Rfam assigns this 76-nucleotide sequence from Alligator sinensis to the family "Mammalian CPEB3 ribozyme". Its family is annotated with RNA nuclease activity in the Gene Ontology. The source organism's lineage runs through Eukaryota, Opisthokonta, Sarcopterygii, Sauropsida and Alligator. Rfam's curators write: The mammalian CPEB3 ribozyme is a self cleaving RNA located in the second intron of the CPEB3 gene which belongs to a family of genes regulating messenger RNA polyadenylation.
RNA sequence: GGUUGACAGCAGAAGUCACAGCAGAAGUGCUUAUGACAUAGCCCUGUCAGAUUGCAAUGAAUCUGCAAAUUCUGCU
Numbered sequence: 001g002g003u004u005g006a007c008a009g010c011a012g013a014a015g016u017c018a019c020a021g022c023a024g025a026a027g028u029g030c031u032u033a034u035g036a037c038a039u040a041g042c043c044c045u046g047u048c049a050g051a052u053u054g055c056a057a058u059g060a061a062u063c064u065g066c067a068a069a070u071u072c073u074g075c076u
Stems, first nucleotide, its partner, number of pairs: 012044001015042002020076007027039003048065006